The family of this 180-nucleotide RNA sequence from Staphylococcus aureus is "Listeria sRNA rli60".
[Rfam]
RNA sequence: AACUAUUAAAGUGAUAUAUACCAUUCACGGAAGGAGUAUAAUAAAAUGCUUAAUCAAUAUACUGAACAUCAACCGACAACUUCAAAUAUUAUUAUUUUAUUAUACUCUUUAGGACUCGAACGUUAGUAAAUAUUUACUAAACGCUUUAAGUCCUAUUUCUGUUUGAAUGGGACUUGUAAA
Numbered sequence: 001a002a003c004u005a006u007u008a009a010a011g012u013g014a015u016a017u018a019u020a021c022c023a024u025u026c027a028c029g030g031a032a033g034g035a036g037u038a039u040a041a042u043a044a045a046a047u048g049c050u051u052a053a054u055c056a057a058u059a060u061a062c063u064g065a066a067c068a069u070c071a072a073c074c075g076a077c078a079a080c081u082u083c084a085a086a087u088a089u090u091a092u093u094a095u096u097u098u099a100u101u102a103u104a105c106u107c108u109u110u111a112g113g114a115c116u117c118g119a120a121c122g123u124u125a126g127u128a129a130a131u132a133u134u135u136a137c138u139a140a141a142c143g144c145u146u147u148a149a150g151u152c153c154u155a156u157u158u159c160u161g162u163u164u165g166a167a168u169g170g171g172a173c174u175u176g177u178a179a180a
Stems, first nucleotide, its partner, number of pairs: 024179002047169002050166004055161002060091002063088002065082002111154005120146001121143002123140007
For this family Rfam cites "The Regulatory Roles of ncRNA Rli60 in Adaptability of Listeria monocytogenes to Environmental Stress and Biofilm Formation" (Peng et al., Curr Microbiol, 2016). It is annotated as a small RNA. Pairs were carried over by alignment from the consensus structure, which was predicted with RNAalifold. It is one of the family's seed sequences.